[Rfam]
RNA sequence: CUUCUAGCAAGGAAGAAAAUUUAGAAGAGGAAAGAAGACUUUUUUAUGUUGGAAUAACAAGAGCUAUAGAGAACCUUUAUUUAUUUGCACCUAGAAA
Numbered sequence: 001c002u003u004c005u006a007g008c009a010a011g012g013a014a015g016a017a018a019a020u021u022u023a024g025a026a027g028a029g030g031a032a033a034g035a036a037g038a039c040u041u042u043u044u045u046a047u048g049u050u051g052g053a054a055u056a057a058c059a060a061g062a063g064c065u066a067u068a069g070a071g072a073a074c075c076u077u078u079a080u081u082u083a084u085u086u087g088c089a090c091c092u093a094g095a096a097a
Stems, first nucleotide, its partner, number of pairs: 004094004016050002019047001025041003051086003056081002059078001062076002065073001
Dot-bracket structure: ...((((........((.(.....(((...........))).....).))(((..((.(..((.(.......).)).).))..)))....))))...
Rfam assigns this 97-nucleotide sequence from Clostridium taeniosporum to the family "Clostridioides difficile sRNA included into helicase gene". The family's consensus secondary structure was predicted with LocARNA. This element was identified by RNA deep sequencing of Clostridioides difficile 630 where it is located within gene CD0749 (putative DNA helicase, UvrD/REP type) in the same direction as the gene. A strong transcription start site for this RNA was experimentally confirmed, in the 3' region of gene CD0749. The 3' end of the sRNA has not been confirmed and its length was arbitrarily set to 100nt. For inclusion criteria: Only sequences from order Clostridiales were included, mostly because the starting sequence belonged to this order and the large majority of sequences found by the different RFAM search iterations belonged to this order as well. The sequence is in the family's curated seed alignment. The family's RNA type in Rfam is small RNA.